Rfam assigns this 115-nucleotide RNA from Medicago truncatula to the family "MIR2593 microRNA precursor family". Gene Ontology terms of the family: RISC complex and miRNA-mediated post-transcriptional gene silencing. The family has 7 seed sequences and 1,262 matches in Rfam 15.1. The base pairs follow the family's consensus structure, which was predicted with RNAalifold. Lineage of the source: Eukaryota > Pentapetalae > Fabaceae > Trifolieae > Medicago.
RNA sequence: UUACAAGAAACAUUUGACUUUUUUGAUUCAUUGAAUAAUUGAUGUAUUUAGUCUAUAUUUUAGACCGAAUACAUCAAUUACUCAAUGAAUCUAAAAAAUCAAAUGUUUCUUGUAA
Numbered sequence: 001u002u003a004c005a006a007g008a009a010a011c012a013u014u015u016g017a018c019u020u021u022u023u024u025g026a027u028u029c030a031u032u033g034a035a036u037a038a039u040u041g042a043u044g045u046a047u048u049u050a051g052u053c054u055a056u057a058u059u060u061u062a063g064a065c066c067g068a069a070u071a072c073a074u075c076a077a078u079u080a081c082u083c084a085a086u087g088a089a090u091c092u093a094a095a096a097a098a099u100c101a102a103a104u105g106u107u108u109c110u111u112g113u114a115a
Stems, first nucleotide, its partner, number of pairs: 002114006009107005015101003019097005025091001027089008036080009049067001051065002